[Rfam]
RNA sequence: AACACCUAAGACAAUGAAAGCCCUACCUCUCUUCCAUUUUUACGGCUCCUUGGCCGCGCCAGUGGGAAUCAGGUAUUACAAACAAUUC
Numbered sequence: 001a002a003c004a005c006c007u008a009a010g011a012c013a014a015u016g017a018a019a020g021c022c023c024u025a026c027c028u029c030u031c032u033u034c035c036a037u038u039u040u041u042a043c044g045g046c047u048c049c050u051u052g053g054c055c056g057c058g059c060c061a062g063u064g065g066g067a068a069u070c071a072g073g074u075a076u077u078a079c080a081a082a083c084a085a086u087u088c
Base pairs, nucleotide, nucleotide: 035066039062040061041058043056044055045054046053047052
Rfam assigns this 88-nucleotide sequence from Cytobacillus depressus to the family "BsrC".
A reference for the family is Saito et al. (2008), "Novel small RNA-encoding genes in the intergenic regions of Bacillus subtilis", Gene.
The 301 nucleotide sequence from Kouji Nakamura has been trimmed to a highly conserved ~85 nucleotide long core to form this family.
It scores 79 bits against the family's covariance model.